[Rfam]
A member of the RNA family "MIR535 microRNA precursor family" from Rhododendron williamsianum, 96 nucleotides long.
The source organism's lineage runs through Eukaryota, Streptophytina, Tracheophyta, Ericaceae and Rhododendron.
It scores 70 bits against the family's covariance model.
On this family, see Zeng et al., Nucleic Acids Res 2010: "Conservation and divergence of microRNAs and their functions in Euphorbiaceous plants".

Nucleotides: 096
Stems, first nucleotide, its partner, number of pairs: 010089005017082001020079002023076001025074007033066002
Number, partner (000 for none) and nucleotide at each position: 001000g002000c003000a004000a005000a006000u007000c008000c009000a010089u011088g012087a013086c014085a015000a016000u017082g018000a019000u020079a021078g022000a023076g024000a025074g026073c027072a028071c029070g030069c031068u032000u033066g034065u035000a036000a037000a038000c039000a040000g041000u042000c043000a044000u045000g046000u047000c048000c049000u050000a051000u052000g053000c054000a055000u056000g057000a058000a059000a060000u061000g062000u063000c064000a065034a066033c067000u068031a069030g070029c071028g072027u073026g074025c075000u076023c077000u078021c079020u080000c081000u082017c083000u084000u085014u086013g087012u088011c089010a090000g091000g092000a093000a094000a095000u096000u